[Rfam]
RNA sequence: GUUUCUGGAGGACGGAAGAGCAGUGAAAGAUCUCUGAAGAGCAGAGUGCUCGGAGUCGACGGAGACAAGAGCGGCGUCCGUGUCUCCGGAAGAGAAGU
Numbered sequence: 001g002u003u004u005c006u007g008g009a010g011g012a013c014g015g016a017a018g019a020g021c022a023g024u025g026a027a028a029g030a031u032c033u034c035u036g037a038a039g040a041g042c043a044g045a046g047u048g049c050u051c052g053g054a055g056u057c058g059a060c061g062g063a064g065a066c067a068a069g070a071g072c073g074g075c076g077u078c079c080g081u082g083u084c085u086c087c088g089g090a091a092g093a094g095a096a097g098u
Base pairs, nucleotide, nucleotide: 001098002097003096004095005094006093
The record is a 98-nucleotide RNA, which matches "Small nucleolar RNA sn2991" in Rfam. The literature on the family includes a 2002 paper in Biochem Biophys Res Commun by Higa et al., "Location of 2(')-O-methyl nucleotides in 26S rRNA and methylation guide snoRNAs in Caenorhabditis elegans". The family has 4 seed sequences and 13 matches in Rfam 15.1. The base pairs follow the family's consensus structure, which was predicted with WAR.